[Rfam]
c-di-AMP riboswitch aptamer (ydaO/yuaA leader): a 128-nucleotide sequence from Caldanaerobius fijiensis. This family represents a conserved RNA structure found upstream of the ydaO and yuaA genes in Bacillus subtilis and related genes in other bacteria. Lineage of the source: Bacteria > Bacillati > Thermoanaerobacterales > Caldanaerobius > Caldanaerobius fijiensis.
RNA sequence: CAAUCGAAUAUGCCGAAUUCACUUAUGUGAAACGGGGGAACCAUCAAAGGGGCGAAUUUCGAAAGAAAAGAACAUGCUCUUUCUGUUCUAGCCCGACAGCUAACCUCGUAGGCAUAGAAAGAGGUAAA
Numbered sequence: 001c002a003a004u005c006g007a008a009u010a011u012g013c014c015g016a017a018u019u020c021a022c023u024u025a026u027g028u029g030a031a032a033c034g035g036g037g038g039a040a041c042c043a044u045c046a047a048a049g050g051g052g053c054g055a056a057u058u059u060c061g062a063a064a065g066a067a068a069a070g071a072a073c074a075u076g077c078u079c080u081u082u083c084u085g086u087u088c089u090a091g092c093c094c095g096a097c098a099g100c101u102a103a104c105c106u107c108g109u110a111g112g113c114a115u116a117g118a119a120a121g122a123g124g125u126a127a128a
Stems, first nucleotide, its partner, number of pairs: 011114004018031003032109006042049001050094003058067003070088004